[Rfam]
RNA: Selenocysteine insertion sequence 1
Organism: Mytilus galloprovincialis
Nucleotides: 059
Base pairs, nucleotide, nucleotide: 001059002058003057004056005055015048016047017046018045019044020043021042022041023040024039029038031036
Number, partner (000 for none) and nucleotide at each position: 001059g002058a003057c004056u005055g006000u007000u008000c009000g010000a011000u012000g013000a014000c015048g016047u017046u018045a019044a020043a021042a022041u023040a024039c025000u026000a027000a028000a029038a030000c031036c032000c033000u034000a035000g036031g037000a038029u039024g040023u041022g042021u043020u044019u045018u046017a047016g048015u049000u050000g051000a052000u053000u054000u055005c056004a057003g058002u059001c